[Rfam]
RNA sequence: GUGCUUUAGGGAUGAACAAGUCCCUCGUAGUCAGUAACCAUCUAAACCACUUAGUCAGUGGCCUUUUUGGUGGCUAAUCCAUCAUUAUGGGAUGGAUGGUAUAUUC
Numbered sequence: 001g002u003g004c005u006u007u008a009g010g011g012a013u014g015a016a017c018a019a020g021u022c023c024c025u026c027g028u029a030g031u032c033a034g035u036a037a038c039c040a041u042c043u044a045a046a047c048c049a050c051u052u053a054g055u056c057a058g059u060g061g062c063c064u065u066u067u068u069g070g071u072g073g074c075u076a077a078u079c080c081a082u083c084a085u086u087a088u089g090g091g092a093u094g095g096a097u098g099g100u101a102u103a104u105u106c
Stems, first nucleotide, its partner, number of pairs: 037100006054082002058078002061075001
Rfam assigns this 106-nucleotide sequence from Gossypium stocksii to the family "Small nucleolar RNA snoR99". The literature on the family includes a 2002 paper in Curr Biol by Marker et al., "Experimental RNomics: identification of 140 candidates for small non-messenger RNAs in the plant Arabidopsis thaliana". Rfam 15.1 lists 733 matches to the family in 222 species. Gene Ontology terms of the family: nucleolus and RNA processing. The match comes from Rfam's covariance-model search (47 bits). Rfam classes the family as an H/ACA-box small nucleolar RNA.